Rfam assigns this 68-nucleotide sequence from Mycolicibacterium austroafricanum to the family "ASdes TB sRNA". By type it is a small RNA. The match comes from Rfam's covariance-model search (71 bits). The organism belongs to Mycolicibacterium austroafricanum, within Bacteria.
RNA sequence: AAAGCCACCGGAUCGACGCCGCGGGUCACCACCAAGUAGUCGCGCAGGGCGAUGCUGUGACGGCCUUC
Numbered sequence: 001a002a003a004g005c006c007a008c009c010g011g012a013u014c015g016a017c018g019c020c021g022c023g024g025g026u027c028a029c030c031a032c033c034a035a036g037u038a039g040u041c042g043c044g045c046a047g048g049g050c051g052a053u054g055c056u057g058u059g060a061c062g063g064c065c066u067u068c
Base pairs, nucleotide, nucleotide: 005062008059011030013028015027016026017025035056036055037054038053040052041051042050043049